6S / SsrS RNA: a 162-nucleotide RNA sequence from Afipia sp. GAS231. The organism belongs to Afipia, within Bacteria. The family has 150 seed sequences and 5,006 matches in Rfam 15.1. It is annotated as a non-coding RNA gene. A search with the family's covariance model found it, with a score of 89 bits.
RNA sequence: GCGAAGCUGCGUCGUUCGUCAGGAGCCAUAAUAUCCCCGGGGCCUUAUCGAUCCUUUAGGGAACUGUCCCUGGCCGGGUCCGUGGACCCGGUCAUAUGGUGCCCACCUACUUUCGUAGGGAACUCCGGGAUCGAGUGCUUCAACGGCGAUCGCGGCCUCGCA
Numbered sequence: 001g002c003g004a005a006g007c008u009g010c011g012u013c014g015u016u017c018g019u020c021a022g023g024a025g026c027c028a029u030a031a032u033a034u035c036c037c038c039g040g041g042g043c044c045u046u047a048u049c050g051a052u053c054c055u056u057u058a059g060g061g062a063a064c065u066g067u068c069c070c071u072g073g074c075c076g077g078g079u080c081c082g083u084g085g086a087c088c089c090g091g092u093c094a095u096a097u098g099g100u101g102c103c104c105a106c107c108u109a110c111u112u113u114c115g116u117a118g119g120g121a122a123c124u125c126c127g128g129g130a131u132c133g134a135g136u137g138c139u140u141c142a143a144c145g146g147c148g149a150u151c152g153c154g155g156c157c158u159c160g161c162a
Stems, first nucleotide, its partner, number of pairs: 002160003006156006012149004017145003034130004039125003043120002059104003063100005072093007